[Rfam]
Rfam assigns this 134-nucleotide RNA sequence from Aspergillus parasiticus to the family "tRNA". The family's consensus secondary structure is taken from published work.
RNA sequence: GCCCCCGUAGCGCAAUGGUAGCGCGUAAGACUGUACGUUUACAUCACCAUCUUCAUCUGUCGGCCCAACUAAUAAAUCAACAGUCUAGGUUCCAAGCCAUCUUAAGGUUGCGAGUUCGAGCCUCGCCGGGGGCU
Number, nucleotide and partner (000 for none) at each position: 001g133002c132003c131004c130005c129006c128007g127008u000009a000010g024011c023012g022013c021014a000015a000016u000017g000018g000019u000020a000021g013022c012023g011024c010025g000026u104027a103028a102029g101030a100031c000032u000033g000034u000035a000036c000037g000038u000039u000040u000041a000042c000043a000044u000045c000046a000047c000048c000049a000050u000051c000052u000053u000054c000055a000056u000057c000058u000059g000060u000061c000062g000063g000064c000065c000066c000067a000068a000069c000070u000071a000072a000073u000074a000075a000076a000077u000078c000079a000080a000081c000082a000083g000084u000085c000086u000087a000088g000089g000090u000091u000092c000093c000094a000095a000096g000097c000098c000099a000100u030101c029102u028103u027104a026105a000106g000107g000108u000109u000110g126111c125112g124113a123114g122115u000116u000117c000118g000119a000120g000121c000122c114123u113124c112125g111126c110127c007128g006129g005130g004131g003132g002133c001134u000